The record is a 136-nucleotide RNA from Candidula unifasciata, which matches "U12 minor spliceosomal RNA" in Rfam.
The family's RNA type in Rfam is spliceosomal small nuclear RNA.
Taxonomically the source falls in Candidula (Eukaryota, Metazoa, Eumetazoa, Eupulmonata).
A search with the family's covariance model found it, with a score of 100 bits.
Pairs were carried over by alignment from the consensus structure.

Nucleotides: 136
Stems, first nucleotide, its partner, number of pairs: 004023005032042004043059005072135004078131007087120002090116004095111005
Number, partner (000 for none) and nucleotide at each position: 001000a002000u003000g004023c005022c006021u007020u008019a009000a010000a011000c012000u013000a014000a015000u016000g017000a018000g019008u020007a021006a022005g023004g024000a025000a026000a027000a028000u029000a030000a031000c032042g033041a034040g035039c036000c037000u038000g039035g040034c041033u042032c043059c044058u045057a046056g047055a048000c049000a050000a051000g052000a053000c054000u055047u056046c057045u058044g059043g060000a061000a062000g063000a064000a065000u066000g067000u068000u069000u070000c071000u072135g073134g074133g075132c076000u077000u078131a079130g080129g081128u082127c083126g084125c085000c086000c087120c088119c089000a090116g091115g092114u093113g094000a095111c096110c097109c098108a099107c100000c101000u102000a103000c104000u105000u106000u107099g108098u109097g110096g111095g112000a113093u114092g115091c116090c117000a118000g119088g120087g121000u122000u123000g124000a125084g126083u127082g128081a129080u130079c131078u132075g133074c134073u135072c136000u